This 78-nucleotide sequence from Clupea harengus belongs to the Rfam family "Mammalian CPEB3 ribozyme".
Taxonomically the source falls in Clupea (Eukaryota, Metazoa, Euteleostomi, Neopterygii).
A reference for the family is Salehi-Ashtiani et al. (2006), "A genomewide search for ribozymes reveals an HDV-like sequence in the human CPEB3 gene", Science.
It scores 56 bits against the family's covariance model.

RNA sequence: UGUUGAAUACUGCGGAUCAUGGUAGAAGCGUUCACGUUCGCGAUCCCUGUCAGGUCUCACAAACCUGCGAAUUCUACC
Numbered sequence: 001u002g003u004u005g006a007a008u009a010c011u012g013c014g015g016a017u018c019a020u021g022g023u024a025g026a027a028g029c030g031u032u033c034a035c036g037u038u039c040g041c042g043a044u045c046c047c048u049g050u051c052a053g054g055u056c057u058c059a060c061a062a063a064c065c066u067g068c069g070a071a072u073u074c075u076a077c078c
Base pairs, nucleotide, nucleotide: 014046015045016044017043018042021078022077023076024075025074026073027072028041029040030039051067052066053065054064055063057061